This 112-nucleotide RNA from Chengkuizengella marina belongs to the Rfam family "TPP riboswitch aptamer (THI element)". The base pairs follow the family's consensus structure, which is taken from published work. Gene Ontology term of the family: thiamine pyrophosphate binding. A search with the family's covariance model found it, with a score of 59 bits.
RNA sequence: UUAAUAAAUGCAGGGAGCUUGGAAGACCAGGCUGAGAGGAUGGCUGUUCUGCUAUCGACUGUUGAACCUGAUCUGGGUAAUGCCAGCGUAGGAAAGAUGUCUAUUCUUGAAU
Numbered sequence: 001u002u003a004a005u006a007a008a009u010g011c012a013g014g015g016a017g018c019u020u021g022g023a024a025g026a027c028c029a030g031g032c033u034g035a036g037a038g039g040a041u042g043g044c045u046g047u048u049c050u051g052c053u054a055u056c057g058a059c060u061g062u063u064g065a066a067c068c069u070g071a072u073c074u075g076g077g078u079a080a081u082g083c084c085a086g087c088g089u090a091g092g093a094a095a096g097a098u099g100u101c102u103a104u105u106c107u108u109g110a111a112u
Stems, first nucleotide, its partner, number of pairs: 006100001008098002011061003017032005039056005067092004073086004